Rfam assigns this 176-nucleotide sequence from Hucho hucho to the family "Small nucleolar RNA SNORA81". The base pairs follow the family's consensus structure, which was predicted with WAR. Rfam classes the family as an H/ACA-box small nucleolar RNA. Taxonomically the source falls in Hucho (Eukaryota, Deuterostomia, Salmonidae, Salmoninae). The match comes from Rfam's covariance-model search (86 bits). On this family, see Gu et al., Nucleic Acids Res 2005: "A novel experimental approach for systematic identification of box H/ACA snoRNAs from eukaryotes".

RNA sequence: CCCUUCUUUUAAAGCACCCUGCUAAAAUUGUGGGGGUGAAGCCUCUGGGCUUGACCCUUGCGGGCAUGUUAGCAUGGGUACACCAAGGAAGAAAAGUGAAGGCAGUGUCGCAAAUGAGACUAGGGUGGACUGCUUACUGUCCGGUGUCUUAUGUCUCAAGAUUCUGUGCUACAAUC
Numbered sequence: 001c002c003c004u005u006c007u008u009u010u011a012a013a014g015c016a017c018c019c020u021g022c023u024a025a026a027a028u029u030g031u032g033g034g035g036g037u038g039a040a041g042c043c044u045c046u047g048g049g050c051u052u053g054a055c056c057c058u059u060g061c062g063g064g065c066a067u068g069u070u071a072g073c074a075u076g077g078g079u080a081c082a083c084c085a086a087g088g089a090a091g092a093a094a095a096g097u098g099a100a101g102g103c104a105g106u107g108u109c110g111c112a113a114a115u116g117a118g119a120c121u122a123g124g125g126u127g128g129a130c131u132g133c134u135u136a137c138u139g140u141c142c143g144g145u146g147u148c149u150u151a152u153g154u155c156u157c158a159a160g161a162u163u164c165u166g167u168g169c170u171a172c173a174a175u176c
Stems, first nucleotide, its partner, number of pairs: 017078002020074005027067002033058002036055002039052005101170004105164001107162001122147001124145001126143004